[Rfam]
RNA sequence: AGGCGGGAUCCGACAAACCACUGGAUGGAGGCGGGGGACCCACCGGUCCACCGAGGACCUGGAACCGCACGCGGUUCCUUGGGGUGAAGCCGAGAGCGGUUCUGAACGGAACCGGGAUCGGCCGGGCAACCUCUCCAGCCCGAACCCGACAGCUGACCUCGCAGGCGCUACAGAGAGGACGU
Numbered sequence: 001a002g003g004c005g006g007g008a009u010c011c012g013a014c015a016a017a018c019c020a021c022u023g024g025a026u027g028g029a030g031g032c033g034g035g036g037g038a039c040c041c042a043c044c045g046g047u048c049c050a051c052c053g054a055g056g057a058c059c060u061g062g063a064a065c066c067g068c069a070c071g072c073g074g075u076u077c078c079u080u081g082g083g084g085u086g087a088a089g090c091c092g093a094g095a096g097c098g099g100u101u102c103u104g105a106a107c108g109g110a111a112c113c114g115g116g117a118u119c120g121g122c123c124g125g126g127c128a129a130c131c132u133c134u135c136c137a138g139c140c141c142g143a144a145c146c147c148g149a150c151a152g153c154u155g156a157c158c159u160c161g162c163a164g165g166c167g168c169u170a171c172a173g174a175g176a177g178g179a180c181g182u
Stems, first nucleotide, its partner, number of pairs: 003166002009030001011028001031162006041081002082147003090121004124141004

A member of the RNA family "c-di-AMP riboswitch aptamer (ydaO/yuaA leader)" from Mycolicibacterium tokaiense, 182 nucleotides long.
Lineage of the source: Bacteria > Bacillati > Actinomycetota > Actinomycetes > Mycobacterium (subgen. Mycolicibacterium).
The match comes from Rfam's covariance-model search (71 bits).